[Rfam]
Nucleotides: 207
Stems, first nucleotide, its partner, number of pairs: 010046003015043002021041008073087005089118003093114004146174001148172002179200008
Number, partner (000 for none) and nucleotide at each position: 001000g002000c003000a004000g005000c006000a007000a008000g009000a010046g011045u012044c013000a014000g015043a016042a017000c018000g019000g020000c021041u022040u023039u024038a025037u026036u027035c028034c029000c030000u031000c032000u033000g034028g035027g036026a037025g038024u039023g040022a041021a042016u043015u044012g045011a046010c047000a048000u049000a050000u051000u052000g053000u054000u055000g056000c057000g058000a059000u060000g061000u062000u063000g064000u065000g066000u067000u068000u069000g070000c071000a072000a073087a074086c075085u076084c077083g078000u079000a080000u081000u082000u083077c084076g085075a086074g087073u088000u089118a090117g091116g092000u093114a094113g095112a096111u097000u098000u099000c100000u101000a102000c103000c104000g105000a106000g107000u108000u109000u110000c111096a112095u113094c114093u115000c116091u117090c118089u119000a120000a121000c122000u123000a124000g125000a126000g127000a128000u129000g130000a131000a132000g133000c134000g135000a136000u137000a138000c139000u140000u141000c142000c143000u144000g145000u146174a147000u148172u149171u150000a151000u152000u153000u154000u155000u156000u157000u158000g159000a160000c161000c162000u163000g164000u165000c166000u167000g168000u169000c170000a171149a172148a173000u174146u175000a176000u177000u178000u179200a180199a181198c182197a183196c184195c185194g186193c187000c188000u189000u190000a191000u192000g193186g194185c195184g196183g197182u198181g199180u200179u201000u202000u203000u204000u205000u206000u207000a